[Rfam]
RNA: Bacterial RNase P class A
Organism: Thermosynechococcus vestitus
RNA sequence: UGAGUUAGCGUGGUGGUUGCGGGAGUCUGCCACUCCUGAGGAAAGUCCGGGCUUCCGAAAGACCAAGCUUGCUGGGUAACGCCCAGUGCGGGUGACCGCGAGGAAAGUGCCACAGAAAUAAACCGCCGAUGGAGGGAAACCUCACAGGCAAGGGUGCAACGGUGCGGUAAGAGCGCACCAGCAACAUCGAGAGAUGUUGGCUCGGUAAACCCCGGCUGGAAGCAAGGUGUGCUAGCGCUAAGGAACCAGGGUUGGUCUUUUCCCCAGUUCUUUGCUAGCCAGAGCCGCUAGAGGCACUUGGUAACAAGUGUCCCAGAUAGAUAACCACCCUUUGAACAGAACCCGGCUUACGUCUAACUCAUUCA
Numbered sequence: 001u002g003a004g005u006u007a008g009c010g011u012g013g014u015g016g017u018u019g020c021g022g023g024a025g026u027c028u029g030c031c032a033c034u035c036c037u038g039a040g041g042a043a044a045g046u047c048c049g050g051g052c053u054u055c056c057g058a059a060a061g062a063c064c065a066a067g068c069u070u071g072c073u074g075g076g077u078a079a080c081g082c083c084c085a086g087u088g089c090g091g092g093u094g095a096c097c098g099c100g101a102g103g104a105a106a107g108u109g110c111c112a113c114a115g116a117a118a119u120a121a122a123c124c125g126c127c128g129a130u131g132g133a134g135g136g137a138a139a140c141c142u143c144a145c146a147g148g149c150a151a152g153g154g155u156g157c158a159a160c161g162g163u164g165c166g167g168u169a170a171g172a173g174c175g176c177a178c179c180a181g182c183a184a185c186a187u188c189g190a191g192a193g194a195u196g197u198u199g200g201c202u203c204g205g206u207a208a209a210c211c212c213c214g215g216c217u218g219g220a221a222g223c224a225a226g227g228u229g230u231g232c233u234a235g236c237g238c239u240a241a242g243g244a245a246c247c248a249g250g251g252u253u254g255g256u257c258u259u260u261u262c263c264c265c266a267g268u269u270c271u272u273u274g275c276u277a278g279c280c281a282g283a284g285c286c287g288c289u290a291g292a293g294g295c296a297c298u299u300g301g302u303a304a305c306a307a308g309u310g311u312c313c314c315a316g317a318u319a320g321a322u323a324a325c326c327a328c329c330c331u332u333u334g335a336a337c338a339g340a341a342c343c344c345g346g347c348u349u350a351c352g353u354c355u356a357a358c359u360c361a362u363u364c365a
Stems, first nucleotide, its partner, number of pairs: 001361008012329007020038007043349003047346005052222004066217003070214002072086005087101001088099004102212002107210002109206003123153002125149003130146002132143004161179006181201001182199007226286002231279006255269001293312008